[Rfam]
RNA sequence: CCUCCAUUUCUUGGCAUGUGCGCUGUUGUUUGGUACGCGUGUGUGUAAUGUACGGAGGAACAGUGAAGCCAGUGCAAUGUCUUCGGUACCAGGCUGUUUCCCCGUCAGCUGGUCCUAUCCUCAAUCGCUGGUACAAAC
Dot-bracket structure: (((((.........((((((.(.(((........)))).))))))........)))))...........(((((..............(((.((((.........))))))).............)))))........
Numbered sequence: 001c002c003u004c005c006a007u008u009u010c011u012u013g014g015c016a017u018g019u020g021c022g023c024u025g026u027u028g029u030u031u032g033g034u035a036c037g038c039g040u041g042u043g044u045g046u047a048a049u050g051u052a053c054g055g056a057g058g059a060a061c062a063g064u065g066a067a068g069c070c071a072g073u074g075c076a077a078u079g080u081c082u083u084c085g086g087u088a089c090c091a092g093g094c095u096g097u098u099u100c101c102c103c104g105u106c107a108g109c110u111g112g113u114c115c116u117a118u119c120c121u122c123a124a125u126c127g128c129u130g131g132u133a134c135a136a137a138c
Stems, first nucleotide, its partner, number of pairs: 001058005015045006022038001024037003070130005089112003093109004

This 138-nucleotide sequence from Megalops atlanticus belongs to the Rfam family "Small nucleolar RNA SNORA57". Rfam classes the family as an H/ACA-box small nucleolar RNA. About the family: U99 belongs to the H/ACA class of snoRNAs which are thought to guide the sites of modification of uridines to pseudouridines, the target for this family is unknown. The organism belongs to Megalops, within Eukaryota. The base pairs follow the family's consensus structure, which was predicted with PFOLD. Rfam links the family to the GO terms RNA processing and nucleolus.